The family of this 592-nucleotide part of an RNA from Kalanchoe fedtschenkoi is "Eukaryotic small subunit ribosomal RNA". Taxonomically the source falls in Kalanchoe (Eukaryota, Viridiplantae, Embryophyta, Magnoliopsida).
[Rfam]
Nucleotides: 592
Base pairs, nucleotide, nucleotide: 001582002581003580005579006578007577008576009575010574011573014454015453016452020447021414027412028411029410031409032408033407036070037069041068042067043066048062049061077367078366079365086288087287088286091283092282095281096280101276102275103274104273116151118149125141128138129137130136157177158176159175160174161173164170165169182237183236184235185234186233187232197224198223199222205213206212207211247269248268249267250266252265253264254263255262291337292336297329298328299327304326305325306324307323308322309321310320311319342364343363344362346357347356348355349354369390370389372387373386374385392403394401395400420445422444423443424442428440429439430438431437432436460489461488462487463485464484465483466482467481468480469479470478471477472476496516497515498513500512527571528570529569531567539566540565541564542563548555549554
Number, partner (000 for none) and nucleotide at each position: 001582a002581g003580u004000c005579a006578u007577a008576u009575g010574u011573u012000u013000g014454u015453a016452u017000c018000a019000a020447a021414g022000a023000u024000u025000a026000a027412g028411c029410c030000a031409u032408g033407c034000a035000u036070g037069u038000g039000u040000a041068a042067g043066u044000a045000u046000g047000a048062a049061c050000u051000a052000a053000u054000u055000u056000a057000g058000a059000c060000u061049g062048u063000g064000a065000a066043a067042c068041u069037g070036c071000a072000a073000a074000u075000g076000g077367c078366u079365c080000a081000u082000u083000u084000a085000u086288c087287a088286g089000u090000u091283a092282u093000a094000g095281u096280u097000u098000g099000c100000u101276u102275g103274a104273u105000g106000g107000u108000a109000c110000c111000u112000g113000c114000u115000a116151c117000u118149c119000a120000g121000a122000u123000a124000a125141c126000c127000g128138u129137a130136g131000u132000a133000a134000u135000u136130c137129u138128a139000a140000a141125g142000c143000u144000a145000a146000u147000a148000c149118g150000u151116g152000a153000a154000c155000a156000a157177a158176u159175u160174c161173c162000g163000a164170c165169u166000u167000c168000u169165g170164g171000a172000a173161g174160g175159g176158a177157u178000g179000c180000a181000u182237u183236u184235a185234u186233u187232a188000a189000a190000u191000a192000a193000g194000u195000g196000g197224c198223c199222a200000a201000c202000g203000c204000u205213g206212g207211c208000u209000u210000u211207g212206c213205c214000c215000g216000u217000c218000g219000c220000u221000u222199u223198g224197g225000g226000g227000a228000u229000u230000g231000a232187u233186g234185a235184u236183a237182a238000c239000u240000c241000g242000a243000c244000g245000g246000a247269u248268c249267g250266c251000a252265c253264g254263g255262c256000c257000u258000u259000a260000g261000u262255g263254c264253c265252g266250g267249c268248g269247a270000u271000g272000c273104a274103u275102c276101a277000u278000u279000c280096a281095a282092a283091u284000u285000u286088c287087u288086g289000c290000a291337c292336u293000a294000u295000c296000a297329a298328c299327u300000u301000u302000c303000a304326a305325u306324g307323g308322u309321a310320g311319g312000a313000u314000a315000g316000u317000g318000g319311c320310c321309u322308a323307c324306u325305a326304u327299g328298g329297u330000g331000g332000u333000g334000a335000c336292g337291g338000g339000u340000g341000a342364c343363g344362g345000c346357g347356a348355a349354u350000u351000a352000g353000a354349g355348u356347u357346c358000g359000a360000u361000u362344u363343u364342g365079g366078a367077g368000a369390g370389g371000g372387a373386g374385c375000c376000u377000g378000a379000g380000a381000a382000a383000c384000g385374g386373c387372u388000a389370c390369c391000a392403c393000a394401u395400c396000c397000a398000a399000g400395g401394a402000a403392g404000g405000c406000a407033g408032c409031a410029g411028g412027c413000g414021c415000g416000c417000a418000a419000g420445u421000u422444a423443c424442c425000c426000a427000a428440u429439c430438c431437u432436g433000a434000c435000a436432c437431g438430g439429g440428g441000a442424g443423g444422u445420a446000g447020u448000g449000a450000c451000a452016a453015u454014a455000a456000a457000u458000a459000a460489c461488a462487a463485u464484a465483c466482c467481a468480g469479g470478c471477u472476c473000a474000a475000u476472g477471a478470g479469u480468c481467u482466g483465g484464u485463a486000a487462u488461u489460g490000g491000a492000a493000u494000g495000a496516g497515u498513a499000c500512a501000a502000u503000c504000u505000a506000a507000a508000u509000c510000c511000c512500u513498u514000a515497a516496u517000g518000a519000g520000g521000a522000u523000c524000c525000a526000u527571u528570g529569g530000a531567g532000g533000g534000c535000a536000a537000g538000u539566c540565u541564g542563g543000u544000g545000c546000c547000a548555g549554c550000a551000g552000c553000c554549g555548u556000g557000g558000u559000a560000a561000u562000u563542c564541c565540a566539g567531c568000g569529c570528c571527a572000u573011a574010g575009c576008g577007u578006a579005u580003a581002u582001u583000u584000a585000a586000g587000u588000u589000g590000u591000u592000g